RNA sequence: AUGUCCGCGAGGAAAUGUGUGGAGGACCUGAAGGCGAAUCUCGGAACAGACGACUAACCACCAUGUUGGCUGACAGAAUCGGAUAACCUUGCGAAAGAUGGGGAAGUCCAGUGCCACAAGAGGGUUCUGUAAGUUAUGAGGACUGGGUUCGAGGGAAAGUUUGAUGA
Numbered sequence: 001a002u003g004u005c006c007g008c009g010a011g012g013a014a015a016u017g018u019g020u021g022g023a024g025g026a027c028c029u030g031a032a033g034g035c036g037a038a039u040c041u042c043g044g045a046a047c048a049g050a051c052g053a054c055u056a057a058c059c060a061c062c063a064u065g066u067u068g069g070c071u072g073a074c075a076g077a078a079u080c081g082g083a084u085a086a087c088c089u090u091g092c093g094a095a096a097g098a099u100g101g102g103g104a105a106g107u108c109c110a111g112u113g114c115c116a117c118a119a120g121a122g123g124g125u126u127c128u129g130u131a132a133g134u135u136a137u138g139a140g141g142a143c144u145g146g147g148u149u150c151g152a153g154g155g156a157a158a159g160u161u162u163g164a165u166g167a
Stems, first nucleotide, its partner, number of pairs: 001016002004013003028166001034160002039154006047145003059141001062138002069134003073130007081109004087102003

Group II catalytic intron D1-D4-3: a 167-nucleotide RNA from Evansella cellulosilytica. Rfam's curators write: Group II introns are found in rRNA, tRNA and mRNA of organelles in fungi, plants and protists, and also in mRNA in bacteria. Rfam links the family to the GO term Group II intron splicing. NCBI's taxonomy places the organism under Bacteria, Bacillota, Caryophanales, Evansella, Evansella cellulosilytica. The match comes from Rfam's covariance-model search (71 bits).